[Rfam]
RNA sequence: CCACGUCCCGACGCACAACCCCCCCGGCGCCGGGACUUCCCAAGGCCGGGUUCGGCGCCCCUCCCCCCGGGCGCCGGGCCCGGCUUUCCU
Numbered sequence: 001c002c003a004c005g006u007c008c009c010g011a012c013g014c015a016c017a018a019c020c021c022c023c024c025c026g027g028c029g030c031c032g033g034g035a036c037u038u039c040c041c042a043a044g045g046c047c048g049g050g051u052u053c054g055g056c057g058c059c060c061c062u063c064c065c066c067c068c069g070g071g072c073g074c075c076g077g078g079c080c081c082g083g084c085u086u087u088c089c090u
Stems, first nucleotide, its partner, number of pairs: 005036006012029003042087010053076008

The record is a 90-nucleotide RNA sequence from Streptomyces pilosus, which matches "Streptomyces RNA 3202" in Rfam. From the family's description: Identified by deep sequencing of transcriptome at the end of exponential growth phase. Appears smaller on northern blot than sequencing transcript. This indicates processing step. A search with the family's covariance model found it, with a score of 62 bits. A reference for the family is Vockenhuber et al. (2011), "Deep sequencing-based identification of small non-coding RNAs in Streptomyces coelicolor", RNA Biol. Lineage of the source: Bacteria > Actinomycetes > Kitasatosporales > Streptomycetaceae > Streptomyces.